[Rfam]
RNA sequence: AAGAGGAAGCGCCCAUGCAUCGGAGAUGCAUAUCGGAAUGGCGCUGACGAACUGCCGCCGAAUGUAAAUGAGGGGGCGUUACAACGA
Numbered sequence: 001a002a003g004a005g006g007a008a009g010c011g012c013c014c015a016u017g018c019a020u021c022g023g024a025g026a027u028g029c030a031u032a033u034c035g036g037a038a039u040g041g042c043g044c045u046g047a048c049g050a051a052c053u054g055c056c057g058c059c060g061a062a063u064g065u066a067a068a069u070g071a072g073g074g075g076g077c078g079u080u081a082c083a084a085c086g087a
Stems, first nucleotide, its partner, number of pairs: 008045006015031006054077003058073002062069002
The record is an 87-nucleotide sequence, which matches "GA-cis RNA" in Rfam. The base pairs follow the family's consensus structure, which is taken from published work.